[Rfam]
RNA sequence: GCGGAAGUGGUGGAAUUGGCAGACACGCUACCUUGAGGUGGUAGUGCGAGAAAUCGCUUGGGGGUUCAAGUCCCCCCUUUCGCA
Numbered sequence: 001g002c003g004g005a006a007g008u009g010g011u012g013g014a015a016u017u018g019g020c021a022g023a024c025a026c027g028c029u030a031c032c033u034u035g036a037g038g039u040g041g042u043a044g045u046g047c048g049a050g051a052a053a054u055c056g057c058u059u060g061g062g063g064g065u066u067c068a069a070g071u072c073c074c075c076c077c078u079u080u081c082g083c084a
Stems, first nucleotide, its partner, number of pairs: 001083007010026003028044005060076005
A member of the RNA family "tRNA" from Simkania negevensis, 84 nucleotides long. The base pairs follow the family's consensus structure, which is taken from published work. Rfam classes the family as a transfer RNA. Rfam links the family to the GO term triplet codon-amino acid adaptor activity.